[Rfam]
RNA sequence: AUAACGUGUUGGGAAGCGAUACGCUUCCCGUGUAUGAUUGAACCCGCGGCGCUACCUAAGCGUCUGGGUUCAUUUUUGU
Numbered sequence: 001a002u003a004a005c006g007u008g009u010u011g012g013g014a015a016g017c018g019a020u021a022c023g024c025u026u027c028c029c030g031u032g033u034a035u036g037a038u039u040g041a042a043c044c045c046g047c048g049g050c051g052c053u054a055c056c057u058a059a060g061c062g063u064c065u066g067g068g069u070u071c072a073u074u075u076u077u078g079u
Stems, first nucleotide, its partner, number of pairs: 010030009039072007
Dot-bracket structure: .........(((((((((...)))))))))........(((((((....................))))))).......